Notes: ZMP/ZTP riboswitch aptamer (pfl RNA motif): an 80-nucleotide sequence from Candidatus Colimorpha enterica. The base pairs follow the family's consensus structure, which is taken from published work. It scores 63 bits against the family's covariance model.
[Rfam]
RNA sequence: GAAGUUUUCCGCAACUGACGGAUUGGUGGGUCACCACCGGGGAACGGGAAAUUAUAACGCCGACCGUCUGGGCAGUUUUG
Numbered sequence: 001g002a003a004g005u006u007u008u009c010c011g012c013a014a015c016u017g018a019c020g021g022a023u024u025g026g027u028g029g030g031u032c033a034c035c036a037c038c039g040g041g042g043a044a045c046g047g048g049a050a051a052u053u054a055u056a057a058c059g060c061c062g063a064c065c066g067u068c069u070g071g072g073c074a075g076u077u078u079u080g
Stems, first nucleotide, its partner, number of pairs: 003053009015041002017068005026037004059073003
Dot-bracket structure: ..(((((((((...(([[[[[....((((....))))..))...))))))))).....(((..]]]]]..))).......